The family of this 69-nucleotide RNA from Actinocrispum wychmicini is "ASpks TB sRNA".
RNA sequence: CUUGACCGAGCCGAGCCACAGCGGCACAGCCCGGCCCUGACCGUACGUGGCCAGCAGGGCCUGGGCUUC
Numbered sequence: 001c002u003u004g005a006c007c008g009a010g011c012c013g014a015g016c017c018a019c020a021g022c023g024g025c026a027c028a029g030c031c032c033g034g035c036c037c038u039g040a041c042c043g044u045a046c047g048u049g050g051c052c053a054g055c056a057g058g059g060c061c062u063g064g065g066c067u068u069c
Stems, first nucleotide, its partner, number of pairs: 015025003027063001032059001037054003041050003
The family's RNA type in Rfam is antisense RNA.
NCBI's taxonomy places the organism under Bacteria, Actinomycetes, Pseudonocardiales, Pseudonocardiaceae, Actinocrispum.
The base pairs follow the family's consensus structure, which is taken from published work.
A search with the family's covariance model found it, with a score of 65 bits.